[Rfam]
RNA sequence: GUGCGUCGUCGACCGAAGCAGACACGGGGCGGGGGAACCAACGACGGGCGCCACGGCGCCCUUGGGGUGAAGCCGACGCGCAGUGCGCGUCGGCCGGGUCAGUCUCCGACCCGAAUCCGACAGCUAACCCCGAAGGCGACAGGAGAUGACGAU
Numbered sequence: 001g002u003g004c005g006u007c008g009u010c011g012a013c014c015g016a017a018g019c020a021g022a023c024a025c026g027g028g029g030c031g032g033g034g035g036a037a038c039c040a041a042c043g044a045c046g047g048g049c050g051c052c053a054c055g056g057c058g059c060c061c062u063u064g065g066g067g068u069g070a071a072g073c074c075g076a077c078g079c080g081c082a083g084u085g086c087g088c089g090u091c092g093g094c095c096g097g098g099u100c101a102g103u104c105u106c107c108g109a110c111c112c113g114a115a116u117c118c119g120a121c122a123g124c125u126a127a128c129c130c131c132g133a134a135g136g137c138g139a140c141a142g143g144a145g146a147u148g149a150c151g152a153u
Stems, first nucleotide, its partner, number of pairs: 007138004014028001030132005039064002065118003073093006096112004